[Rfam]
Source information: Shown here is a 149-nucleotide RNA from Manihot esculenta, a member of the family "small nucleolar RNA snoR135". The base pairs follow the family's consensus structure, which was predicted with RNAalifold. NCBI's taxonomy places the organism under Eukaryota, Viridiplantae, Malpighiales, Crotonoideae, Manihot. For this family Rfam cites "Mining small RNA sequencing data: a new approach to identify small nucleolar RNAs in Arabidopsis" (Chen and Wu, Nucleic Acids Res, 2009). It is annotated as an H/ACA-box small nucleolar RNA. It scores 138 bits against the family's covariance model.
RNA sequence: AUAGCAGGGAUGGUGUGUAUCGGCGUUGUGCUGCAAAAAUGCACUAUGAAUCCGAAAGAGUUCCCUGCAAUAUAACAUCUGGGGAAGAUGGGCAGUUGUGUUUCAUUCUUAGCCAUUGAAACUUUUCAACAAUCAUCUUCCCCACAUUU
Numbered sequence: 001a002u003a004g005c006a007g008g009g010a011u012g013g014u015g016u017g018u019a020u021c022g023g024c025g026u027u028g029u030g031c032u033g034c035a036a037a038a039a040u041g042c043a044c045u046a047u048g049a050a051u052c053c054g055a056a057a058g059a060g061u062u063c064c065c066u067g068c069a070a071u072a073u074a075a076c077a078u079c080u081g082g083g084g085a086a087g088a089u090g091g092g093c094a095g096u097u098g099u100g101u102u103u104c105a106u107u108c109u110u111a112g113c114c115a116u117u118g119a120a121a122c123u124u125u126u127c128a129a130c131a132a133u134c135a136u137c138u139u140c141c142c143c144a145c146a147u148u149u
Stems, first nucleotide, its partner, number of pairs: 004068007015044006081143011095130004